The family of this 133-nucleotide RNA from Merops nubicus is "Small nucleolar RNA SNORA77". The base pairs follow the family's consensus structure, which was predicted with RNAalifold. ACA63 (SNORA77) is a member of the H/ACA class of snoRNAs that guide the sites of modification of uridines to pseudouridines. This snoRNA was identified by computational screening and its expression in mouse experimentally verified by Northern blot and primer extension analysis. ACA63 is proposed to guide the pseudouridylation of 18S rRNA U814. The literature on the family includes a 2006 paper in RNA by Schattner et al., "A computational screen for mammalian pseudouridylation guide H/ACA RNAs". Gene Ontology terms of the family: RNA processing and nucleolus. A search with the family's covariance model found it, with a score of 50 bits.
[Rfam]
RNA sequence: GCAGACUCACUCUGUGCUGAACUGCACUCUUCAGUUCAGGUGCUUUUCCCGUCUGCGAGAGGAAUCGUUCACGGGAGUGACAACUGCCUUCUUUCUUGUAGAAGGCUGUCACAAGUGCUGGUGGGACAUGGCU
Numbered sequence: 001g002c003a004g005a006c007u008c009a010c011u012c013u014g015u016g017c018u019g020a021a022c023u024g025c026a027c028u029c030u031u032c033a034g035u036u037c038a039g040g041u042g043c044u045u046u047u048c049c050c051g052u053c054u055g056c057g058a059g060a061g062g063a064a065u066c067g068u069u070c071a072c073g074g075g076a077g078u079g080a081c082a083a084c085u086g087c088c089u090u091c092u093u094u095c096u097u098g099u100a101g102a103a104g105g106c107u108g109u110c111a112c113a114a115g116u117g118c119u120g121g122u123g124g125g126a127c128a129u130g131g132c133u
Stems, first nucleotide, its partner, number of pairs: 001056006014043004018038003022034003069124004074119002077112006086106004